[Rfam]
RNA: mir-929 microRNA precursor family
Organism: Plutella xylostella
RNA sequence: GGAUGUGAAAUUGACUCUAGUAGGGAGUCCGUGUCCACGCCGCGACUCCCUAAUGGAGUCAGGUUGACUUCUAU
Numbered sequence: 001g002g003a004u005g006u007g008a009a010a011u012u013g014a015c016u017c018u019a020g021u022a023g024g025g026a027g028u029c030c031g032u033g034u035c036c037a038c039g040c041c042g043c044g045a046c047u048c049c050c051u052a053a054u055g056g057a058g059u060c061a062g063g064u065u066g067a068c069u070u071c072u073a074u
Base pairs, nucleotide, nucleotide: 011062012061013060014059015058016057017056018055021052022051023050024049025048026047027046028045029044